[Rfam]
RNA sequence: GACGAAAGGGCGCGAUAAAUCGCGCCCUUUCAUAGAUAAAUGCGGGGCUGAACCCCGCAUUUUCAGUCAAAAUCAAAG
Numbered sequence: 001g002a003c004g005a006a007a008g009g010g011c012g013c014g015a016u017a018a019a020u021c022g023c024g025c026c027c028u029u030u031c032a033u034a035g036a037u038a039a040a041u042g043c044g045g046g047g048c049u050g051a052a053c054c055c056c057g058c059a060u061u062u063u064c065a066g067u068c069a070a071a072a073u074c075a076a077a078g
Stems, first nucleotide, its partner, number of pairs: 006029010035064002038062007045054002

Rfam assigns this 78-nucleotide RNA to the family "Termite-leu RNA". It is one of the family's seed sequences.